[Rfam]
RNA sequence: UGGGUGGUAUUUUUUUAGAAAGCUGCACCAGGCAAUGAUUUUUCAAUUUAUGACAGCUCAUAUCCAUAGGAAUGGGACUAGUAG
Numbered sequence: 001u002g003g004g005u006g007g008u009a010u011u012u013u014u015u016u017a018g019a020a021a022g023c024u025g026c027a028c029c030a031g032g033c034a035a036u037g038a039u040u041u042u043u044c045a046a047u048u049u050a051u052g053a054c055a056g057c058u059c060a061u062a063u064c065c066a067u068a069g070g071a072a073u074g075g076g077a078c079u080a081g082u083a084g
Stems, first nucleotide, its partner, number of pairs: 001030003004026005010021002055079002057076005063071003
Dot-bracket structure: ((((((((.((........))))))).)))........................(((((((.(((...)))))))).)).....
pan motif: an 84-nucleotide RNA from Clostridium vincentii. A search with the family's covariance model found it, with a score of 41 bits. The base pairs follow the family's consensus structure, which is taken from published work. By type it is a cis-regulatory element.